Rfam assigns this 154-nucleotide RNA sequence from Capsicum baccatum to the family "Small nucleolar RNA snoR145". Taxonomically the source falls in Capsicum (Eukaryota, Streptophytina, Solanaceae, Solanoideae). Pairs were carried over by alignment from the consensus structure, which was predicted with mfold. Rfam classes the family as an H/ACA-box small nucleolar RNA.
[Rfam]
RNA sequence: AAGCGAAGGUUCCCAGCGGAGAGGGUAAAAACUCUAGAACGAGUCCUCUCUAACACAAUAAACACAAUGCCUUCGCAGAUUGAACAUUUGCCGAAUCGUAGGAAGCUCCAGAUUCCCCCAUUUUAGUGCUUCUUGAACCCUCGGCUAAAUUUCU
Numbered sequence: 001a002a003g004c005g006a007a008g009g010u011u012c013c014c015a016g017c018g019g020a021g022a023g024g025g026u027a028a029a030a031a032c033u034c035u036a037g038a039a040c041g042a043g044u045c046c047u048c049u050c051u052a053a054c055a056c057a058a059u060a061a062a063c064a065c066a067a068u069g070c071c072u073u074c075g076c077a078g079a080u081u082g083a084a085c086a087u088u089u090g091c092c093g094a095a096u097c098g099u100a101g102g103a104a105g106c107u108c109c110a111g112a113u114u115c116c117c118c119c120a121u122u123u124u125a126g127u128g129c130u131u132c133u134u135g136a137a138c139c140c141u142c143g144g145c146u147a148a149a150u151u152u153c154u
Stems, first nucleotide, its partner, number of pairs: 003076007012021001014019001023050003032043003090145005102132002105129002108126001110124003